Description
This 85-nucleotide RNA sequence from Massilia eurypsychrophila belongs to the Rfam family "DUF3800-VII RNA". Pairs were carried over by alignment from the consensus structure, which is taken from published work. It is annotated as a small RNA. NCBI's taxonomy places the organism under Bacteria, Pseudomonadati, Pseudomonadota, Oxalobacteraceae, Massilia.
Nucleotides: 085
Stems, first nucleotide, its partner, number of pairs: 001080007011072001013071004022066001024064003027042006045054003
Number, partner (000 for none) and nucleotide at each position: 001080g002079g003078c004077a005076g006075a007074c008000a009000a010000g011072c012000g013071c014070a015069g016068g017000a018000a019000u020000u021000g022066u023000a024064g025063a026062g027042g028041u029040c030039g031038c032037c033000g034000a035000a036000a037032g038031g039030u040029g041028g042027c043000a044000g045054c046053c047052c048000g049000a050000a051000u052047g053046g054045g055000u056000g057000g058000a059000a060000u061000c062026c063025u064024c065000g066022a067000a068016c069015c070014u071013g072011g073000g074007g075006u076005c077004u078003g079002c080001u081000c082000c083000u084000a085000a